[Rfam]
RNA sequence: AAUUAAACACAGGGGAGCUGAUUAGGCAGCUGAGAGUAAGAAAUUUAAUUCUUUGACCCUAGUUACCUGAACUGGAUAAUGCCAGCGUAGGAAGUGUAGGGGUAAUAUUA
Numbered sequence: 001a002a003u004u005a006a007a008c009a010c011a012g013g014g015g016a017g018c019u020g021a022u023u024a025g026g027c028a029g030c031u032g033a034g035a036g037u038a039a040g041a042a043a044u045u046u047a048a049u050u051c052u053u054u055g056a057c058c059c060u061a062g063u064u065a066c067c068u069g070a071a072c073u074g075g076a077u078a079a080u081g082c083c084a085g086c087g088u089a090g091g092a093a094g095u096g097u098a099g100g101g102g103u104a105a106u107a108u109u110a
Base pairs, nucleotide, nucleotide: 007097008096009095010094011060012059013058014057016054017030018029019028020027038053039052040051041050066091067090068089069088072085073084074083075082